[Rfam]
RNA: FMN riboswitch aptamer (RFN element)
RNA sequence: GAACGUGCUCCGGGGUCGGUGCAAUUCCGAGCCGGCGGUGACAGUCCGCGACCCGCGCCCUACGCGCGGUUGACCUGGUGGAACUCCAGGACCGACGGUGACAGUCCGGAUGGGAGGAAGCACGUGC
Number, nucleotide and partner (000 for none) at each position: 001g000002a000003a125004c124005g123006u122007g121008c120009u119010c116011c000012g000013g000014g000015g000016u000017c029018g028019g027020u000021g000022c000023a000024a000025u000026u000027c019028c018029g017030a000031g105032c104033c094034g093035g049036c048037g047038g046039u000040g000041a000042c000043a000044g092045u091046c038047c037048g036049c035050g000051a000052c000053c069054c068055g000056c000057g000058c000059c000060c000061u000062a000063c000064g000065c000066g000067c000068g054069g053070u000071u000072g000073a000074c090075c089076u088077g087078g086079u000080g000081g000082a000083a000084c000085u000086c078087c077088a076089g075090g074091a045092c044093c034094g033095a000096c108097g107098g106099u000100g000101a000102c000103a000104g032105u031106c098107c097108g096109g000110a000111u000112g000113g000114g000115a000116g010117g000118a000119a009120g008121c007122a006123c005124g004125u003126g000127c000